[Rfam]
RNA sequence: UCGCCUGUUGUACAUCCACUGAUCACGGAUGGUUCAGUGCAGCGUGGCGAACAACCGAAUAACAAACAGCUGACUACUGAACAGGAAGCUGCAAUCCGAAACGGAAGACAUCCGUUACUACGACCGUAUCCUGCAGAACAAGAACACCGUUCCAGUCACACAGAUUGCCA
Dot-bracket structure: (((((((((((((((((.........)))))[[[[[[))))))).)))))................(((.(.....]]]]]].....(.((.........(((((.....))))).....)).)......................................).)))...
RNA: DUF2800 RNA